This 88-nucleotide RNA from Nyssa sinensis belongs to the Rfam family "MIR397 microRNA precursor family". The match comes from Rfam's covariance-model search (86 bits).
[Rfam]
RNA sequence: UGAAGAAACAUCAUUGAGUGCAGCGUUGAUGAAAUCCUAUUACUAUGUCUUGUUGAUUUCACCAGCGCUGCAAUCAAUCAUGUUUUUG
Dot-bracket structure: .....((((((.(((((.((((((((((.(((..........................))).)))))))))).))))).))))))...